[Rfam]
RNA: c-di-AMP riboswitch aptamer (ydaO/yuaA leader)
Organism: Isoptericola dokdonensis
RNA sequence: UCCGGAUCUCCGACGUACGAACGACAGGGGCGGGGGAACCACUUCCGGACACUGCGGUGUCCUCGGGGUGAAGUCGUGCGGGAUUCGUCCCGCCGGCCGGGUCAGUCUCCGACCCGAACCCGACAGCUAACUUCGUGGGCGCCAGGAGAUACUGC
Number, nucleotide and partner (000 for none) at each position: 001u000002c139003c138004g000005g000006a000007u029008c028009u027010c000011c000012g000013a000014c000015g000016u000017a000018c000019g000020a000021a000022c000023g000024a000025c000026a000027g009028g008029g007030g136031c135032g134033g133034g132035g131036g000037a000038a000039c000040c065041a000042c000043u000044u000045c000046c000047g000048g000049a000050c000051a000052c000053u000054g000055c000056g000057g000058u000059g000060u000061c000062c000063u000064c000065g040066g121067g120068g119069u000070g000071a000072a000073g000074u096075c095076g094077u000078g000079c000080g000081g000082g000083a000084u000085u000086c000087g000088u000089c000090c000091c000092g000093c000094c076095g075096g074097c000098c000099g115100g114101g113102u112103c000104a000105g000106u000107c000108u000109c000110c000111g000112a102113c101114c100115c099116g000117a000118a000119c068120c067121c066122g000123a000124c000125a000126g000127c000128u000129a000130a000131c035132u034133u033134c032135g031136u030137g000138g003139g002140c000141g000142c000143c000144a000145g000146g000147a000148g000149a000150u000151a000152c000153u000154g000155c000